RNA sequence: AAAGUUUGUGAUCUCCGAGCGGUUAAGCCUACGGGUUUAUGCCUAUGGUUUUUCCGCCGAUAGGGUGUAGGCGGAAACGCUUGCGCCUCCCGUGUUUGGAAAGGAGGUAAUUUAGCUAUUUU
Numbered sequence: 001a002a003a004g005u006u007u008g009u010g011a012u013c014u015c016c017g018a019g020c021g022g023u024u025a026a027g028c029c030u031a032c033g034g035g036u037u038u039a040u041g042c043c044u045a046u047g048g049u050u051u052u053u054c055c056g057c058c059g060a061u062a063g064g065g066u067g068u069a070g071g072c073g074g075a076a077a078c079g080c081u082u083g084c085g086c087c088u089c090c091c092g093u094g095u096u097u098g099g100a101a102a103g104g105a106g107g108u109a110a111u112u113u114a115g116c117u118a119u120u121u122u
Base pairs, nucleotide, nucleotide: 011108012107013106014105015104016103019057020056021055022054025051026050027049028048029047033044034043035042036041063088064087065086066085067084068083069082070081071080072079073078089099090098
This 122-nucleotide RNA from Hippea maritima belongs to the Rfam family "Molybdenum/Tungsten riboswitch aptamer (Moco RNA motif)". Lineage of the source: Bacteria > Pseudomonadati > Campylobacterota > Hippea > Hippea maritima. A reference for the family is Regulski et al. (2008), "in molybdenum cofactor and tungsten cofactor metabolism", Mol Microbiol. The match comes from Rfam's covariance-model search (88 bits).